Shown here is a 141-nucleotide RNA from Xenopus tropicalis, a member of the family "Small nucleolar RNA SNORD10".
The literature on the family includes a 2001 paper in EMBO J by Huttenhofer et al., "RNomics: an experimental approach that identifies 201 candidates for novel, small, non-messenger RNAs in mouse".

[Rfam]
RNA sequence: AGUGUAGUGAUGAUAUCCCAUGCGUGUCAUCUGAUGCCCACGUCUCUCUCUGCCCUUGGCCUGCGCAGCCUGCGUCCUGCGGGUUGGGUUUGGCUAGAGCAGAGGAGUCUGGGAAAUGAUCUGACUGUCUAUCUGAAUACU
Number, nucleotide and partner (000 for none) at each position: 001a141002g140003u139004g138005u000006a000007g000008u000009g000010a000011u000012g000013a000014u000015a000016u000017c000018c000019c000020a000021u000022g000023c000024g000025u000026g000027u000028c000029a000030u000031c000032u000033g000034a000035u000036g000037c000038c000039c000040a000041c000042g000043u000044c000045u000046c000047u000048c104049u103050c102051u101052g100053c099054c000055c097056u096057u000058g000059g000060c000061c000062u000063g000064c000065g000066c000067a000068g000069c000070c000071u000072g000073c000074g000075u000076c000077c000078u000079g000080c000081g000082g000083g000084u000085u000086g000087g000088g000089u000090u000091u000092g000093g000094c000095u000096a056097g055098a000099g053100c052101a051102g050103a049104g048105g000106a000107g000108u000109c000110u000111g000112g000113g000114a000115a000116a000117u000118g000119a000120u000121c000122u000123g000124a000125c000126u000127g000128u000129c000130u000131a000132u000133c000134u000135g000136a000137a000138u004139a003140c002141u001